[Rfam]
RNA sequence: UCUAGAAAAUAGCAAACUUCAUCGAAAGGGGAGGACGCAAAGCCGUGGGUCUAAAGUCACUUGUGGACAAGGAUCGCCAGGUUGCCGAG
Numbered sequence: 001u002c003u004a005g006a007a008a009a010u011a012g013c014a015a016a017c018u019u020c021a022u023c024g025a026a027a028g029g030g031g032a033g034g035a036c037g038c039a040a041a042g043c044c045g046u047g048g049g050u051c052u053a054a055a056g057u058c059a060c061u062u063g064u065g066g067a068c069a070a071g072g073a074u075c076g077c078c079a080g081g082u083u084g085c086c087g088a089g
Stems, first nucleotide, its partner, number of pairs: 012038002017033004022029002041083004046079003049074003056068003
RNA: c-di-GMP-I riboswitch aptamer
Organism: Peribacillus loiseleuriae